[Rfam]
RNA sequence: GGGGCUGACAUGGUUUCGACGGGAGUUGCAAACCCUGAGGUGCAUGCCGAGGCUUCAGAUUACCUCGUAAAUCCAGCUGAAAACUUAUAGUUGCUAACGAUGACAACUACGCAAUGGCCGCAUAACUAGACCUUAGGGUUUAGUUGUACGUACUACCCCGUUCCGGAUCUGCCUGUGGGUUUGGGCGGGGGCAAUAGACACAGGAUCGCGAGAAGGGUCGCCCUUACACCGGAUCGCUAAACCAAUAAUGGGCUCGCUGCUCUUUAUGGUGCCCGUCCUGCACUGUAGCGGCUAAAGCCAAUGACGGAACUAAGCAUGUAGUACCAAUGGCAGAGUGCUUUCGGACGGGGGUUCGACUCCCCCCAGCUCCACCA
Numbered sequence: 001g002g003g004g005c006u007g008a009c010a011u012g013g014u015u016u017c018g019a020c021g022g023g024a025g026u027u028g029c030a031a032a033c034c035c036u037g038a039g040g041u042g043c044a045u046g047c048c049g050a051g052g053c054u055u056c057a058g059a060u061u062a063c064c065u066c067g068u069a070a071a072u073c074c075a076g077c078u079g080a081a082a083a084c085u086u087a088u089a090g091u092u093g094c095u096a097a098c099g100a101u102g103a104c105a106a107c108u109a110c111g112c113a114a115u116g117g118c119c120g121c122a123u124a125a126c127u128a129g130a131c132c133u134u135a136g137g138g139u140u141u142a143g144u145u146g147u148a149c150g151u152a153c154u155a156c157c158c159c160g161u162u163c164c165g166g167a168u169c170u171g172c173c174u175g176u177g178g179g180u181u182u183g184g185g186c187g188g189g190g191g192c193a194a195u196a197g198a199c200a201c202a203g204g205a206u207c208g209c210g211a212g213a214a215g216g217g218u219c220g221c222c223c224u225u226a227c228a229c230c231g232g233a234u235c236g237c238u239a240a241a242c243c244a245a246u247a248a249u250g251g252g253c254u255c256g257c258u259g260c261u262c263u264u265u266a267u268g269g270u271g272c273c274c275g276u277c278c279u280g281c282a283c284u285g286u287a288g289c290g291g292c293u294a295a296a297g298c299c300a301a302u303g304a305c306g307g308a309a310c311u312a313a314g315c316a317u318g319u320a321g322u323a324c325c326a327a328u329g330g331c332a333g334a335g336u337g338c339u340u341u342c343g344g345a346c347g348g349g350g351g352u353u354c355g356a357c358u359c360c361c362c363c364c365a366g367c368u369c370c371a372c373c374a
Stems, first nucleotide, its partner, number of pairs: 001370007020343007034330002039325003043318005048067005054081005060075001124145009156190006163184006172204006208237004220254001222252003256292006263285001267280003271310001274307001275305003347363005
The record is a 374-nucleotide RNA sequence from Granulosicoccus antarcticus, which matches "transfer-messenger RNA" in Rfam. Rfam classes the family as a non-coding RNA gene. It scores 204 bits against the family's covariance model. About the family: Bacterial tmRNA, also known as 10Sa RNA or SsrA, is named for its dual tRNA and mRNA-like properties. Its role is to liberate the mRNA from a stalled ribosome. To accomplish this part of the tmRNA is used as a reading frame that ends in a translation stop signal. The broken mRNA is replaced in the ribosome by the tmRNA and translation of the tmRNA leads to addition of a proteolysis tag to the incomplete protein enabling recognition by a protease. Gene Ontology term of the family: RNA catabolic process. For this family Rfam cites "Phylogenetic analysis of tmRNA secondary structure" (Williams and Bartel, RNA, 1996). The family is grouped with related families in Rfam's "tRNA clan".